[Rfam]
RNA sequence: GUGGAGACGCGCGGGAGCUCGGCAUGCCGGGCUGAGAGGAGAGCGCAAGGCUCUCGACCGCCAAGGAACCUGAUCCGGGUAAUGCCGGCGAAGGGAGCGAAAUGCCCAGAGAA
Numbered sequence: 001g002u003g004g005a006g007a008c009g010c011g012c013g014g015g016a017g018c019u020c021g022g023c024a025u026g027c028c029g030g031g032c033u034g035a036g037a038g039g040a041g042a043g044c045g046c047a048a049g050g051c052u053c054u055c056g057a058c059c060g061c062c063a064a065g066g067a068a069c070c071u072g073a074u075c076c077g078g079g080u081a082a083u084g085c086c087g088g089c090g091a092a093g094g095g096a097g098c099g100a101a102a103u104g105c106c107c108a109g110a111g112a113a
Base pairs, nucleotide, nucleotide: 008099009098010097011061012060013059014058017032018031019030020029021028039055040054041053042052043051069094070093071092075088076087077086078085
Shown here is a 113-nucleotide RNA sequence from Thermobispora bispora, a member of the family "TPP riboswitch aptamer (THI element)". Rfam's curators write: Vitamin B(1) in its active form thiamin pyrophosphate (TPP) is an essential coenzyme that is synthesised by coupling of pyrimidine and thiazole moieties in bacteria. The previously detected thiamin-regulatory element, thi box was extended, resulting in a new, highly conserved RNA secondary structure, the THI element, which is widely distributed in eubacteria and also occurs in some archaea. Analysis of operon structures identified a large number of new candidate thiamin-regulated genes, mostly transporters, in various prokaryotic organisms. The source organism's lineage runs through Bacteria, Actinomycetota, Actinomycetes, Streptosporangiaceae and Thermobispora bispora. The family's consensus secondary structure is taken from published work.